[Rfam]
Shown here is an 83-nucleotide RNA from Manihot esculenta, a member of the family "Small nucleolar RNA R16".
The family's consensus secondary structure was predicted with PFOLD.
Rfam classes the family as a C/D-box small nucleolar RNA.
RNA sequence: GAAGGUAGAUGAUGAAUAAGUUAUUCUCUCACAUGCUGAAUUAACUGUGGACUUCAAAUCUCCGCUUAUUGUCUGAUGCCUUC
Numbered sequence: 001g002a003a004g005g006u007a008g009a010u011g012a013u014g015a016a017u018a019a020g021u022u023a024u025u026c027u028c029u030c031a032c033a034u035g036c037u038g039a040a041u042u043a044a045c046u047g048u049g050g051a052c053u054u055c056a057a058a059u060c061u062c063c064g065c066u067u068a069u070u071g072u073c074u075g076a077u078g079c080c081u082u083c
Stems, first nucleotide, its partner, number of pairs: 003081005